[Rfam]
Rfam assigns this 106-nucleotide RNA from Psittacicella hinzii to the family "Alpha operon ribosome binding site". Lineage of the source: Bacteria > Pseudomonadati > Gammaproteobacteria > Pasteurellales > Psittacicella. A reference for the family is Schlax et al. (2001), "Translational repression of the Escherichia coli alpha operon mRNA: importance of an mRNA conformational switch and a ternary entrapment complex", J Biol Chem. From the family's description: The bacterial alpha operon ribosome binding site is surrounded by this complex pseudoknotted structure. Translation of the mRNA produces 4 ribosomal protein products, one of which (S4) acts as a translational repressor by binding to the nested pseudoknot region. The mechanism of repression is thought to involve a conformational switch in the pseudoknot region and ribosome entrapment. Gene Ontology term of the family: ribosome binding. Rfam classes the family as a cis-regulatory element. A search with the family's covariance model found it, with a score of 92 bits. The family's consensus secondary structure is taken from published work.
RNA sequence: UUAUAAACUGUGUUUUGAGUAUCCUGAAACGGGCUUUUCAAGAUACACAGUUUUUAAGACACUAGGAGUGCAAAUGGCCCGUAUUGCAGGCGUUAACAUUCCUGAU
Numbered sequence: 001u002u003a004u005a006a007a008c009u010g011u012g013u014u015u016u017g018a019g020u021a022u023c024c025u026g027a028a029a030c031g032g033g034c035u036u037u038u039c040a041a042g043a044u045a046c047a048c049a050g051u052u053u054u055u056a057a058g059a060c061a062c063u064a065g066g067a068g069u070g071c072a073a074a075u076g077g078c079c080c081g082u083a084u085u086g087c088a089g090g091c092g093u094u095a096a097c098a099u100u101c102c103u104g105a106u
Base pairs, nucleotide, nucleotide: 005053006052007051008050009049010048011047012046013045023090024089025088030081031080032079033078038105039104040103